[Rfam]
RNA sequence: UUUUGUGAUGAUAUAGCUAUUUUACCUUGGGACACCUAUGAAAUGCCUUGAUUUGUGUAAAUUUGUUUAACUGAUUAGA
Numbered sequence: 001u002u003u004u005g006u007g008a009u010g011a012u013a014u015a016g017c018u019a020u021u022u023u024a025c026c027u028u029g030g031g032a033c034a035c036c037u038a039u040g041a042a043a044u045g046c047c048u049u050g051a052u053u054u055g056u057g058u059a060a061a062u063u064u065g066u067u068u069a070a071c072u073g074a075u076u077a078g079a
Stems, first nucleotide, its partner, number of pairs: 002079004
Small nucleolar RNA Me28S-Gm3113: a 79-nucleotide RNA sequence from Drosophila ananassae. The family's consensus secondary structure was predicted with ILM. The family's RNA type in Rfam is C/D-box small nucleolar RNA. NCBI's taxonomy places the organism under Eukaryota, Insecta, Pterygota, Cyclorrhapha, ananassae species complex. Its family is annotated with nucleolus and RNA processing in the Gene Ontology.